[Rfam]
RNA sequence: CCGGCGGAUUCCGAAAAGCCAUUCAGAAAACAGAGUAGGAG
Numbered sequence: 001c002c003g004g005c006g007g008a009u010u011c012c013g014a015a016a017a018g019c020c021a022u023u024c025a026g027a028a029a030a031c032a033g034a035g036u037a038g039g040a041g
Base pairs, nucleotide, nucleotide: 003020004019005018010040011039012038